[Rfam]
Rfam assigns this 48-nucleotide sequence from Kingdonia uniflora to the family "Plastid-ccsA-ndhD-2 3UTR RNA". By type it is a cis-regulatory element. Rfam describes the family as follows. Plastid ccsA-ndhD-2 is a non-coding RNA (ncRNA) recognised in plastids. It was found in the three prime untranslated region (3UTR) of ccsA and ndhD genes, its 3UTR location suggests a role in transcript maturation. The family's consensus secondary structure was predicted with LocARNA. On this family, see Stern and Gruissem, Cell 1987: "Control of plastid gene expression: 3' inverted repeats act as mRNA processing and stabilizing elements, but do not terminate transcription".
RNA sequence: UUUUUGAAAAUCAUUUGAAUCAAGUAGCGAUUCAAAUGAUUUUCAAAA
Numbered sequence: 001u002u003u004u005u006g007a008a009a010a011u012c013a014u015u016u017g018a019a020u021c022a023a024g025u026a027g028c029g030a031u032u033c034a035a036a037u038g039a040u041u042u043u044c045a046a047a048a
Stems, first nucleotide, its partner, number of pairs: 004046018
The match comes from Rfam's covariance-model search (53 bits).
The source organism's lineage runs through Eukaryota, Spermatophyta, Magnoliopsida, Mesangiospermae and Kingdonia.